[Rfam]
RNA sequence: CAGGCUAGAGGCGAUGGAUCCCGCCGGAGUGCUCUGCGCUCGAAGUGCCAGCAUGGCUGACGGCUCCUACCAGACU
Number, nucleotide and partner (000 for none) at each position: 001c000002a000003g000004g000005c000006u000007a000008g000009a000010g025011g024012c023013g022014a000015u000016g067017g066018a065019u000020c063021c062022c013023g012024c011025c010026g000027g000028a000029g000030u000031g000032c000033u000034c000035u000036g000037c000038g000039c000040u000041c000042g000043a000044a000045g000046u000047g057048c056049c055050a000051g000052c000053a000054u000055g049056g048057c047058u000059g000060a000061c000062g021063g020064c000065u018066c017067c016068u000069a000070c000071c000072a000073g000074a000075c000076u000